Shown here is a 110-nucleotide RNA sequence from Sarcophilus harrisii, a member of the family "Small nucleolar RNA SNORD67". By type it is a C/D-box small nucleolar RNA. The base pairs follow the family's consensus structure. snoRNA HBII-166 belongs to the C/D family of snoRNAs. Its family is annotated with RNA processing and nucleolus in the Gene Ontology.

RNA sequence: CGCGAAAGUGAUGAGUUGCACGUUGGUGUGGCCACAGCAUCGGGUGAUGUGGGCUGCACUCAGUAGCAGUCUGGUGACAAACCAAGUGCACAGGGGCCAUCUGACUCGCG
Numbered sequence: 001c002g003c004g005a006a007a008g009u010g011a012u013g014a015g016u017u018g019c020a021c022g023u024u025g026g027u028g029u030g031g032c033c034a035c036a037g038c039a040u041c042g043g044g045u046g047a048u049g050u051g052g053g054c055u056g057c058a059c060u061c062a063g064u065a066g067c068a069g070u071c072u073g074g075u076g077a078c079a080a081a082c083c084a085a086g087u088g089c090a091c092a093g094g095g096g097c098c099a100u101c102u103g104a105c106u107c108g109c110g
Base pairs, nucleotide, nucleotide: 004109007106008105022064023063024062025061026059027058028057029056031054032053033052037050038049039048040047041046